[Rfam]
RNA sequence: AACUCGAUAGUAUGGUAGAAAAAGAAUAUGAAUCUUUCUACCAUACUAUCUAUAUCUAUUAUUGUAAUAAACUGUAUCA
Numbered sequence: 001a002a003c004u005c006g007a008u009a010g011u012a013u014g015g016u017a018g019a020a021a022a023a024g025a026a027u028a029u030g031a032a033u034c035u036u037u038c039u040a041c042c043a044u045a046c047u048a049u050c051u052a053u054a055u056c057u058a059u060u061a062u063u064g065u066a067a068u069a070a071a072c073u074g075u076a077u078c079a
Stems, first nucleotide, its partner, number of pairs: 006050016023033001
Dot-bracket structure: .....((((((((((((((((.(.........).)))))))))))))))).............................